[Rfam]
RNA: malK-II RNA
Organism: Vibrio paucivorans
RNA sequence: AUUCCUACUGUUAUUGCUCAAACCCUAAUUCAUAUAAUGAUGAGCAGUAA
Numbered sequence: 001a002u003u004c005c006u007a008c009u010g011u012u013a014u015u016g017c018u019c020a021a022a023c024c025c026u027a028a029u030u031c032a033u034a035u036a037a038u039g040a041u042g043a044g045c046a047g048u049a050a
Stems, first nucleotide, its partner, number of pairs: 011050008